RNA sequence: CUCCCGUACCUACUGGGCUGAUAAUCAGUGGUUAUAUCUUCCCCUGGCUCAGUUCAGCAGGACAGGAG
Numbered sequence: 001c002u003c004c005c006g007u008a009c010c011u012a013c014u015g016g017g018c019u020g021a022u023a024a025u026c027a028g029u030g031g032u033u034a035u036a037u038c039u040u041c042c043c044c045u046g047g048c049u050c051a052g053u054u055c056a057g058c059a060g061g062a063c064a065g066g067a068g
Base pairs, nucleotide, nucleotide: 001068002067003066004065006063009061010060011059013057014056015055016054017053018052019051020050021049025047026046027045028044
Dot-bracket structure: ((((.(..(((.(((((((((...((((...............)))).))))))))).))).).))))